[Rfam]
RNA sequence: CUCUUAUCCAGAGAGGUCGAGGGACUGGCCCGAUGACACCCAGCAACCGGCGUAAUUACGCAGUGGUGCUAAUUCCAGCAGGAAUCAGUAGAAUUCCUGGGAGAUGAGAG
Numbered sequence: 001c002u003c004u005u006a007u008c009c010a011g012a013g014a015g016g017u018c019g020a021g022g023g024a025c026u027g028g029c030c031c032g033a034u035g036a037c038a039c040c041c042a043g044c045a046a047c048c049g050g051c052g053u054a055a056u057u058a059c060g061c062a063g064u065g066g067u068g069c070u071a072a073u074u075c076c077a078g079c080a081g082g083a084a085u086c087a088g089u090a091g092a093a094u095u096c097c098u099g100g101g102a103g104a105u106g107a108g109a110g
Base pairs, nucleotide, nucleotide: 001110002109003108004107005106006105007104008103013041015040016039017038021031022030023029025078026077027076028075042070043069044068045067047066048065050061051060052059074102079099080098081097082096083095084094

SAM riboswitch aptamer (S box leader): a 110-nucleotide RNA sequence from Sporomusa malonica. Its family is annotated with regulation of gene expression in the Gene Ontology. The organism belongs to Sporomusa, within Bacteria. A search with the family's covariance model found it, with a score of 90 bits.